[Rfam]
RNA: M-box riboswitch aptamer (ykoK leader)
RNA sequence: AUUUACUUAUGUUAGGUGAGGCUCCUAUAUAGAUAUACGCUACUGCCCGGAAACAUCGAGAGAUGCCAAUGGGUCAACAGGUACUACCGAAUCAAGGUUUUACUUAAUGUAGCUGAACAAUAUUGUUCAAAGCUAUAUAGUGCUAAAACUCGGACUAUAAAGUUUUA
Numbered sequence: 001a002u003u004u005a006c007u008u009a010u011g012u013u014a015g016g017u018g019a020g021g022c023u024c025c026u027a028u029a030u031a032g033a034u035a036u037a038c039g040c041u042a043c044u045g046c047c048c049g050g051a052a053a054c055a056u057c058g059a060g061a062g063a064u065g066c067c068a069a070u071g072g073g074u075c076a077a078c079a080g081g082u083a084c085u086a087c088c089g090a091a092u093c094a095a096g097g098u099u100u101u102a103c104u105u106a107a108u109g110u111a112g113c114u115g116a117a118c119a120a121u122a123u124u125g126u127u128c129a130a131a132g133c134u135a136u137a138u139a140g141u142g143c144u145a146a147a148a149c150u151c152g153g154a155c156u157a158u159a160a161a162g163u164u165u166u167a
Stems, first nucleotide, its partner, number of pairs: 005164001007162002010159001011155002013095001015150003020144003025140008039113005045074005054065004080104004086098003115128003